[Rfam]
RNA: Molybdenum/Tungsten riboswitch aptamer (Moco RNA motif)
RNA sequence: CUCCGAGCCGCAUUGCCUGUCGGGCCCCGUGUCCGUGGUGUGCGGCCGAUAGGGUGUGUCUGGAAACGGGCACGCCUCCCUUGUUUGGCAAGGAG
Number, nucleotide and partner (000 for none) at each position: 001c095002u094003c093004c092005g000006a000007g046008c045009c044010g043011c042012a041013u040014u000015g039016c038017c037018u000019g000020u000021c035022g034023g033024g032025c000026c000027c000028c000029g000030u000031g000032u024033c023034c022035g021036u000037g017038g016039u015040g013041u012042g011043c010044g009045g008046c007047c000048g000049a000050u000051a000052g077053g076054g075055u074056g073057u072058g071059u070060c069061u068062g067063g000064a000065a000066a000067c062068g061069g060070g059071c058072a057073c056074g055075c054076c053077u052078c088079c087080c000081u000082u000083g000084u000085u000086u000087g079088g078089c000090a000091a000092g004093g003094a002095g001